[Rfam]
RNA sequence: CCCUUAUCUUUUAAAAGUUUCAAGUUGGUCCCUUAUCUUUAUUUUAGGUUUCAAGUUGGUCGCUUCCGUCAAUUUUUUAACUAUUUCCGUUAAAUUUGGACACGUGGCAAACUAAUUUGGACACGUGGCACACUUGGACAGAUGACACGUGUCCAAAUUUAACGGAAAUAGUUAAAAAGUUGACAGAAGGGACCAACUUGAAACCUAAAAUAAAGAUAAGGGACCAACUUGAAACUUUUAAAAGAUAAGGGA
Numbered sequence: 001c002c003c004u005u006a007u008c009u010u011u012u013a014a015a016a017g018u019u020u021c022a023a024g025u026u027g028g029u030c031c032c033u034u035a036u037c038u039u040u041a042u043u044u045u046a047g048g049u050u051u052c053a054a055g056u057u058g059g060u061c062g063c064u065u066c067c068g069u070c071a072a073u074u075u076u077u078u079a080a081c082u083a084u085u086u087c088c089g090u091u092a093a094a095u096u097u098g099g100a101c102a103c104g105u106g107g108c109a110a111a112c113u114a115a116u117u118u119g120g121a122c123a124c125g126u127g128g129c130a131c132a133c134u135u136g137g138a139c140a141g142a143u144g145a146c147a148c149g150u151g152u153c154c155a156a157a158u159u160u161a162a163c164g165g166a167a168a169u170a171g172u173u174a175a176a177a178a179g180u181u182g183a184c185a186g187a188a189g190g191g192a193c194c195a196a197c198u199u200g201a202a203a204c205c206u207a208a209a210a211u212a213a214a215g216a217u218a219a220g221g222g223a224c225c226a227a228c229u230u231g232a233a234a235c236u237u238u239u240a241a242a243a244g245a246u247a248a249g250g251g252a
Stems, first nucleotide, its partner, number of pairs: 002250007023229003027225003031221013045207003

The record is a 252-nucleotide sequence from Trifolium subterraneum, which matches "MIR2655 microRNA precursor family" in Rfam.